This 209-nucleotide RNA from Streptomyces longispororuber belongs to the Rfam family "Streptomyces RNA 1601". The source organism's lineage runs through Bacteria, Bacillati, Actinomycetes, Streptomycetaceae and Streptomyces. Identified by deep sequencing of transcriptome at the end of exponential growth phase. Appears longer on northern blot than sequencing transcript. Streptomyces specific. For this family Rfam cites "Deep sequencing-based identification of small non-coding RNAs in Streptomyces coelicolor" (Vockenhuber et al., RNA Biol, 2011). It scores 151 bits against the family's covariance model.
[Rfam]
RNA sequence: GACGACCGGCCGGACACCGGCGCGCCAGCGCAGGCUCCGGCCCACAAGUGGAGGCUCCGAUCUCCCACCUUGCCGCUCCCCGAGCGGCGGGUCACCGGUCAGGCGGUCCGCUCCCAGAGCCAUGGUCCGCCCGAUGCGCCCCGUGGUCACCGCGGAGGUGCUCCGGUAUUCGUAUGGAGCCCCUGCUGUGAUCAGUCGGGGCAUUUUUU
Numbered sequence: 001g002a003c004g005a006c007c008g009g010c011c012g013g014a015c016a017c018c019g020g021c022g023c024g025c026c027a028g029c030g031c032a033g034g035c036u037c038c039g040g041c042c043c044a045c046a047a048g049u050g051g052a053g054g055c056u057c058c059g060a061u062c063u064c065c066c067a068c069c070u071u072g073c074c075g076c077u078c079c080c081c082g083a084g085c086g087g088c089g090g091g092u093c094a095c096c097g098g099u100c101a102g103g104c105g106g107u108c109c110g111c112u113c114c115c116a117g118a119g120c121c122a123u124g125g126u127c128c129g130c131c132c133g134a135u136g137c138g139c140c141c142c143g144u145g146g147u148c149a150c151c152g153c154g155g156a157g158g159u160g161c162u163c164c165g166g167u168a169u170u171c172g173u174a175u176g177g178a179g180c181c182c183c184u185g186c187u188g189u190g191a192u193c194a195g196u197c198g199g200g201g202c203a204u205u206u207u208u209u
Base pairs, nucleotide, nucleotide: 004100005099006098007097008096009095012038013037039093040092041091042090043089046070048068049067050066051065052063053062072088073087074086075085076084077083078082102131103130104129105128106127108124109119138202139201140200141199142198143197144194145193146192151190152189153188154186156184157183158182160180161179162178163177164176